RNA sequence: AGGUUAAUGCUAAUCGUGAUAGGGGUUGUGCAUUACAAUACACCUAACAUGUUAGCAUUAGCUU
Number, nucleotide and partner (000 for none) at each position: 001a000002g000003g000004u061005u060006a059007a058008u057009g056010c055011u054012a053013a052014u051015c000016g000017u000018g000019a000020u046021a045022g044023g043024g000025g041026u040027u000028g000029u000030g000031c000032a000033u000034u000035a000036c000037a000038a000039u000040a026041c025042a000043c023044c022045u021046a020047a000048c000049a000050u000051g014052u013053u012054a011055g010056c009057a008058u007059u006060a005061g004062c000063u000064u000

This 64-nucleotide RNA from Perca flavescens belongs to the Rfam family "mir-155 microRNA precursor family". The family's consensus secondary structure was predicted with RNAalifold.